[Rfam]
RNA sequence: CUCUGGUUAACCUACAAUCAGGGCCGAAGGAG
Numbered sequence: 001c002u003c004u005g006g007u008u009a010a011c012c013u014a015c016a017a018u019c020a021g022g023g024c025c026g027a028a029g030g031a032g
Stems, first nucleotide, its partner, number of pairs: 001023008
Rfam assigns this 32-nucleotide sequence to the family "L31-Firmicutes ribosomal protein leader". On this family, see Eckert and Weinberg, BMC Microbiol 2020: "Discovery of 20 novel ribosomal leader candidates in bacteria and archaea". Its Rfam clan is "Ribosomal Protein L31 Leader clan". The family's consensus secondary structure is taken from published work. It is one of the family's seed sequences.